[Rfam]
The record is a 145-nucleotide sequence from Panicum miliaceum, which matches "MIR6234 microRNA precursor family" in Rfam. Its family is annotated with miRNA-mediated post-transcriptional gene silencing and RISC complex in the Gene Ontology. The match comes from Rfam's covariance-model search (97 bits). Taxonomically the source falls in Panicum sect. Panicum (Eukaryota, Viridiplantae, Embryophyta, Liliopsida). The base pairs follow the family's consensus structure, which was predicted with RNAalifold.
RNA sequence: CUCUUUUUUGUGUGCAAGUGUGUUCCUCUGUUUGACGCUAAAGGUGAAUGCUCCAAAUGAAACACUUUCCAUGUAUUGUUGCUUGCUUUUGUAGUAUCCUGACCUCUAGUGUCAAGAGACGAACACACUCGCACACAGAAAAGCA
Numbered sequence: 001c002u003c004u005u006u007u008u009u010g011u012g013u014g015c016a017a018g019u020g021u022g023u024u025c026c027u028c029u030g031u032u033u034g035a036c037g038c039u040a041a042a043g044g045u046g047a048a049u050g051c052u053c054c055a056a057a058u059g060a061a062a063c064a065c066u067u068u069c070c071a072u073g074u075a076u077u078g079u080u081g082c083u084u085g086c087u088u089u090u091g092u093a094g095u096a097u098c099c100u101g102a103c104c105u106c107u108a109g110u111g112u113c114a115a116g117a118g119a120c121g122a123a124c125a126c127a128c129u130c131g132c133a134c135a136c137a138g139a140a141a142a143g144c145a
Base pairs, nucleotide, nucleotide: 003143004142005141006140007139009137010136014132015131017129018128019127020126021125022124023123024122025121027119028118029117031116032115033114034113035112036111037110038109039108040107042105043104044103045102046099048097049096050095051094054091055090056089059086061084062083063081064080065078068075